[Rfam]
The record is a 122-nucleotide RNA sequence from Caldicoprobacter faecalis, which matches "FMN riboswitch aptamer (RFN element)" in Rfam.
The base pairs follow the family's consensus structure, which is taken from published work.
A search with the family's covariance model found it, with a score of 125 bits.
RNA sequence: GACUAUCUUCGGGGCAGGGUGAAAUUCCCGACCGGCGGUAAAGCCCGCGAGUCCCUCAGUGAGGGAUUGAUCCGGUGAAACUCCGGAGCCGACAGUUACAGUCUGGAUGGGAGAAGAUAGUA
Numbered sequence: 001g002a003c004u005a006u007c008u009u010c011g012g013g014g015c016a017g018g019g020u021g022a023a024a025u026u027c028c029c030g031a032c033c034g035g036c037g038g039u040a041a042a043g044c045c046c047g048c049g050a051g052u053c054c055c056u057c058a059g060u061g062a063g064g065g066a067u068u069g070a071u072c073c074g075g076u077g078a079a080a081c082u083c084c085g086g087a088g089c090c091g092a093c094a095g096u097u098a099c100a101g102u103c104u105g106g107a108u109g110g111g112a113g114a115a116g117a118u119a120g121u122a
Stems, first nucleotide, its partner, number of pairs: 003120008017029003031102002033091002035048004043089002051067003071087005093105003